Rfam assigns this 86-nucleotide sequence from Upupa epops to the family "Small nucleolar RNA SNORD24". It scores 41 bits against the family's covariance model. Rfam classes the family as a C/D-box small nucleolar RNA. Rfam 15.1 lists 2,843 matches to the family in 1,188 species.

RNA sequence: UGCCACAAUGAUGACAGUUAAUAAUUGCUACUCUUGACCCAAGAGGGUGAUGAGAACUCAGACCACCAUCUUACUUCUCUGAGGCA
Dot-bracket structure: ((((..............................................................................))))